[Rfam]
RNA sequence: GCCGGUCCUCGGUAGUGGCUCCCGGGUGGACAAGAACCCGAGGGCUUCGAUCGAAGACCGGC
Numbered sequence: 001g002c003c004g005g006u007c008c009u010c011g012g013u014a015g016u017g018g019c020u021c022c023c024g025g026g027u028g029g030a031c032a033a034g035a036a037c038c039c040g041a042g043g044g045c046u047u048c049g050a051u052c053g054a055a056g057a058c059c060g061g062c
Stems, first nucleotide, its partner, number of pairs: 001062007009054005017046005023040005

Background
The record is a 62-nucleotide RNA sequence from Pseudonocardia sp. MH-G8, which matches "Actino-pnp RNA" in Rfam. It scores 68 bits against the family's covariance model.